RNA sequence: CAGUUUGAGCAGGUCACGUGUGGUUCAGCAUGAUAGUGAAAUAUGUUGCAUCACGUGUGACCCUACACCGC
Number, nucleotide and partner (000 for none) at each position: 001c000002a000003g068004u067005u000006u065007g064008a000009g000010c000011a000012g062013g061014u060015c059016a058017c057018g056019u055020g054021u053022g000023g051024u050025u000026c048027a047028g000029c000030a000031u000032g000033a000034u000035a000036g000037u000038g000039a000040a000041a000042u000043a000044u000045g000046u000047u027048g026049c000050a024051u023052c000053a021054c020055g019056u018057g017058u016059g015060a014061c013062c012063c000064u007065a006066c000067a004068c003069c000070g000071c000